[Rfam]
RNA sequence: UUCGCCAAGGGCAAACCGUCGGUAACGGCGGGACGCAAAGCCUCCGGCCCCAUGGGGUAGCGGGGUUGCCGGAG
Numbered sequence: 001u002u003c004g005c006c007a008a009g010g011g012c013a014a015a016c017c018g019u020c021g022g023u024a025a026c027g028g029c030g031g032g033a034c035g036c037a038a039a040g041c042c043u044c045c046g047g048c049c050c051c052a053u054g055g056g057g058u059a060g061c062g063g064g065g066u067u068g069c070c071g072g073a074g
Base pairs, nucleotide, nucleotide: 001074003071004070011036012035016031017030018029019028020027021026034060039067040066041065042064044063045062046061047058048057049056
The family of this 74-nucleotide RNA from Sphingobium sp. SYK-6 is "c-di-GMP-I-GGC riboswitch aptamer".
The base pairs follow the family's consensus structure, which is taken from published work.